[Rfam]
RNA sequence: AAGUGAGAUGAUGGCAUACCAUCUUUCGGGACUGACCUGGAAUGGAGAUAAUUUGUAAUUGCUGAUCACUU
Numbered sequence: 001a002a003g004u005g006a007g008a009u010g011a012u013g014g015c016a017u018a019c020c021a022u023c024u025u026u027c028g029g030g031a032c033u034g035a036c037c038u039g040g041a042a043u044g045g046a047g048a049u050a051a052u053u054u055g056u057a058a059u060u061g062c063u064g065a066u067c068a069c070u071u
Stems, first nucleotide, its partner, number of pairs: 001071006